[Rfam]
The family of this 83-nucleotide RNA sequence from Roseovarius indicus is "Glycine riboswitch aptamer". The match comes from Rfam's covariance-model search (44 bits). The organism belongs to Roseovarius, within Bacteria.
RNA sequence: GAAGUGAACUCUGGAGAGAUCCCGGCCGAUGACCGGGGCGCCGAAGGGAUAGCGAUCUCAGGCAGAAGGACAGAGGGGGCAUC
Numbered sequence: 001g002a003a004g005u006g007a008a009c010u011c012u013g014g015a016g017a018g019a020u021c022c023c024g025g026c027c028g029a030u031g032a033c034c035g036g037g038g039c040g041c042c043g044a045a046g047g048g049a050u051a052g053c054g055a056u057c058u059c060a061g062g063c064a065g066a067a068g069g070a071c072a073g074a075g076g077g078g079g080c081a082u083c
Base pairs, nucleotide, nucleotide: 009075010074011073012072013071020038021037022036023035040063041062042061043059044058047057048056